[Rfam]
RNA sequence: CUAAAGGCUCUUUUCAGAGCCACUCACAUACACAAAUGAAAGAGCU
Numbered sequence: 001c002u003a004a005a006g007g008c009u010c011u012u013u014u015c016a017g018a019g020c021c022a023c024u025c026a027c028a029u030a031c032a033c034a035a036a037u038g039a040a041a042g043a044g045c046u
Stems, first nucleotide, its partner, number of pairs: 006021006
Shown here is a 46-nucleotide RNA from Psilopogon haemacephalus, a member of the family "Histone 3' UTR stem-loop". The base pairs follow the family's consensus structure, which is taken from published work. For this family Rfam cites "Formation of the 3' end of histone mRNA" (Dominski and Marzluff, Gene, 1999). Taxonomically the source falls in Psilopogon (Eukaryota, Deuterostomia, Amniota, Sauropsida). Rfam's curators write: The mRNAs of metazoan histone genes lack a poly-A tail. 3' end processing occurs at a site between a highly conserved stem-loop (modelled by this family) and a purine rich region around 20 nts downstream (the histone downstream element, or HDE).